This 70-nucleotide RNA sequence from Stutzerimonas stutzeri belongs to the Rfam family "narK RNA". Rfam's curators put it in the seed alignment.
[Rfam]
RNA sequence: GGCACAGCUCCUGCUUAUCCCGAGACAGGUAGCCAAAGGCGGUUACUCACAGACAUGACAAAGGCGUCGC
Dot-bracket structure: ...........................(((((((......))))))).......................
Numbered sequence: 001g002g003c004a005c006a007g008c009u010c011c012u013g014c015u016u017a018u019c020c021c022g023a024g025a026c027a028g029g030u031a032g033c034c035a036a037a038g039g040c041g042g043u044u045a046c047u048c049a050c051a052g053a054c055a056u057g058a059c060a061a062a063g064g065c066g067u068c069g070c
Stems, first nucleotide, its partner, number of pairs: 028047007